[Rfam]
Record summary:
Rfam assigns this 54-nucleotide sequence from Muraenolepis orangiensis to the family "UnaL2 LINE 3' element". Its family is annotated with transposition, RNA-mediated in the Gene Ontology. A search with the family's covariance model found it, with a score of 68 bits. Rfam describes the family as follows. The eel long interspersed element (LINE) UnaL2 and its partner short interspersed element (SINE) share a conserved 3' tail containing a stem-loop that is critical for their retrotransposition. Presumably, the first step of retrotransposition is the recognition of their 3' tails by UnaL2-encoded reverse transcriptase. The solution structure of a 17-nucleotide RNA derived from the 3' tail of UnaL2 was determined by NMR.
RNA sequence: AACUAAUACUAUUGUAAGUCGCUUUGGAUAAAAGCGUCUGCUAAAUGACUGCCA
Number, nucleotide and partner (000 for none) at each position: 001a000002a000003c000004u000005a000006a000007u000008a000009c000010u000011a000012u000013u043014g041015u040016a039017a000018g000019u000020c036021g035022c034023u033024u032025u031026g000027g000028a000029u000030a000031a025032a024033a023034g022035c021036g020037u000038c000039u016040g015041c014042u000043a013044a000045a000046u000047g000048a000049c000050u000051g000052c000053c000054a000